[Rfam]
Shown here is a 78-nucleotide sequence from Populus tomentosa, a member of the family "Small nucleolar RNA R38". Rfam's curators write: snoR38 is a C/D box small nucleolar RNA conserved across yeast, human, Arabidopsis and rice. The family's consensus secondary structure was predicted with PFOLD. The source organism's lineage runs through Eukaryota, Viridiplantae, Embryophyta, eudicotyledons and Populus.

RNA sequence: UUUUGUGCAUGAUGAGAAACAUAAAAAUUAACAGUUAUCCCUUGCUGAUUCAUAUGUGCUGAUUAAUAUGACACAAAA
Numbered sequence: 001u002u003u004u005g006u007g008c009a010u011g012a013u014g015a016g017a018a019a020c021a022u023a024a025a026a027a028u029u030a031a032c033a034g035u036u037a038u039c040c041c042u043u044g045c046u047g048a049u050u051c052a053u054a055u056g057u058g059c060u061g062a063u064u065a066a067u068a069u070g071a072c073a074c075a076a077a078a
Base pairs, nucleotide, nucleotide: 001078002077003076004075005074006073007072